[Rfam]
RNA: c-di-GMP-I riboswitch aptamer
RNA sequence: AACAUAAAAAGGCAAACUUAUGGUAACAUAAGGGCGCAAAGCAAAGUAUCCUAACAUUUUAGGACGGUCUAGCUGCUAUG
Numbered sequence: 001a002a003c004a005u006a007a008a009a010a011g012g013c014a015a016a017c018u019u020a021u022g023g024u025a026a027c028a029u030a031a032g033g034g035c036g037c038a039a040a041g042c043a044a045a046g047u048a049u050c051c052u053a054a055c056a057u058u059u060u061a062g063g064a065c066g067g068u069c070u071a072g073c074u075g076c077u078a079u080g
Stems, first nucleotide, its partner, number of pairs: 012037002017032006040074003045070002049064006